[Rfam]
RNA sequence: GGCGCGUCUCUUGCUAAAUGAUCGGCACAGGGCAGCCAACGGCGGUUGCCUGUCGAACGACAAAGGCGUCGC
Numbered sequence: 001g002g003c004g005c006g007u008c009u010c011u012u013g014c015u016a017a018a019u020g021a022u023c024g025g026c027a028c029a030g031g032g033c034a035g036c037c038a039a040c041g042g043c044g045g046u047u048g049c050c051u052g053u054c055g056a057a058c059g060a061c062a063a064a065g066g067c068g069u070c071g072c
Stems, first nucleotide, its partner, number of pairs: 031050007